[Rfam]
RNA sequence: UAGCCGUGCGGUGAGCACGGAGCGGACUAUUCUUUUGCCUUUUACUAAAUAUUAUCGUGUGCUCCCGCUCUUAGCGGCAUAUGGCUAAUUUCGUAGGCCUAAUUUCCUAUUGUAAUUGC
Numbered sequence: 001u002a003g004c005c006g007u008g009c010g011g012u013g014a015g016c017a018c019g020g021a022g023c024g025g026a027c028u029a030u031u032c033u034u035u036u037g038c039c040u041u042u043u044a045c046u047a048a049a050u051a052u053u054a055u056c057g058u059g060u061g062c063u064c065c066c067g068c069u070c071u072u073a074g075c076g077g078c079a080u081a082u083g084g085c086u087a088a089u090u091u092c093g094u095a096g097g098c099c100u101a102a103u104u105u106c107c108u109a110u111u112g113u114a115a116u117u118g119c
Base pairs, nucleotide, nucleotide: 003078004077005076006075009067010066011065013064014063015062016061017060018059019058028054029053031051033049034048035047096119100118101117102116103115104114
Shown here is a 119-nucleotide sequence from Gossypium davidsonii, a member of the family "U5 spliceosomal RNA". The family has 180 seed sequences and 28,527 matches in Rfam 15.1. The family's consensus secondary structure is taken from published work. It scores 55 bits against the family's covariance model. U5 RNA is a component of both types of known spliceosome. The precise function of this molecule is unknown, though it is known that the 5' loop is required for splice site selection and p220 binding, and that both the 3' stem-loop and the Sm site are important for Sm protein binding and cap methylation. For this family Rfam cites "The uRNA database" (Zwieb, Nucleic Acids Res, 1997). The organism belongs to Gossypium, within Eukaryota.